This 115-nucleotide RNA from Polymorphum gilvum belongs to the Rfam family "SAM-I/IV (S-adenosyl methionine) riboswitch aptamer".
The family's consensus secondary structure is taken from published work.
NCBI's taxonomy places the organism under Bacteria, Pseudomonadota, Rhodobacterales, Paracoccaceae, Polymorphum gilvum.

[Rfam]
RNA sequence: GACCAUCAUCAAGAGAAGGGCUGGCGCCCUCGCCAACCUGCCCGGCCGGGCAAGGUGGUCUCCGCCAAGGGAUGUGGUCCGCGCGCGCCGCGCAAGGACAACCAAGCGGUCCGGA
Numbered sequence: 001g002a003c004c005a006u007c008a009u010c011a012a013g014a015g016a017a018g019g020g021c022u023g024g025c026g027c028c029c030u031c032g033c034c035a036a037c038c039u040g041c042c043c044g045g046c047c048g049g050g051c052a053a054g055g056u057g058g059u060c061u062c063c064g065c066c067a068a069g070g071g072a073u074g075u076g077g078u079c080c081g082c083g084c085g086c087g088c089c090g091c092g093c094a095a096g097g098a099c100a101a102c103c104a105a106g107c108g109g110u111c112c113g114g115a
Base pairs, nucleotide, nucleotide: 007074008073009072010071015031017030018029019028020027021026032059033058034057037055038054039053040051041050042049044111045110046109047108048107077099078098079097080096